[Rfam]
RNA sequence: AUCUCCUGGGAAAUAUUGUUAAAAUGCAGAUUCUGAUUCUGUAUAUCUGGGGUGGGGCCUAGGAUUCUGUAUUUCUAACAAGCUCCCAGGUGAUGCUUC
Numbered sequence: 001a002u003c004u005c006c007u008g009g010g011a012a013a014u015a016u017u018g019u020u021a022a023a024a025u026g027c028a029g030a031u032u033c034u035g036a037u038u039c040u041g042u043a044u045a046u047c048u049g050g051g052g053u054g055g056g057g058c059c060u061a062g063g064a065u066u067c068u069g070u071a072u073u074u075c076u077a078a079c080a081a082g083c084u085c086c087c088a089g090g091u092g093a094u095g096c097u098u099c
Stems, first nucleotide, its partner, number of pairs: 003092001005090001009086003016081006022074003026070005032064003
Source information
The family of this 99-nucleotide RNA sequence from Capra hircus is "mir-544 microRNA precursor family". The literature on the family includes a 2010 paper in Genes Dev by Chiang et al., "Mammalian microRNAs: experimental evaluation of novel and previously annotated genes". The organism belongs to Capra, within Eukaryota. Its family is annotated with RISC complex and miRNA-mediated post-transcriptional gene silencing in the Gene Ontology.